[Rfam]
RNA sequence: AGCAGUUGUGUCUGUUUUUAAUUUGUGGACGAAGACUUACAGGUGCAGAAAUAAAUCCUUUUUUGCAACCCAGAAUUCAUUGUUCAGUAUGAGUUUUGAUACACAUAAAAAGGAACAAU
Numbered sequence: 001a002g003c004a005g006u007u008g009u010g011u012c013u014g015u016u017u018u019u020a021a022u023u024u025g026u027g028g029a030c031g032a033a034g035a036c037u038u039a040c041a042g043g044u045g046c047a048g049a050a051a052u053a054a055a056u057c058c059u060u061u062u063u064u065g066c067a068a069c070c071c072a073g074a075a076u077u078c079a080u081u082g083u084u085c086a087g088u089a090u091g092a093g094u095u096u097u098g099a100u101a102c103a104c105a106u107a108a109a110a111a112g113g114a115a116c117a118a119u
Stems, first nucleotide, its partner, number of pairs: 002046003006042004010036004015031001017029001022027001056115001058113002061110005071098010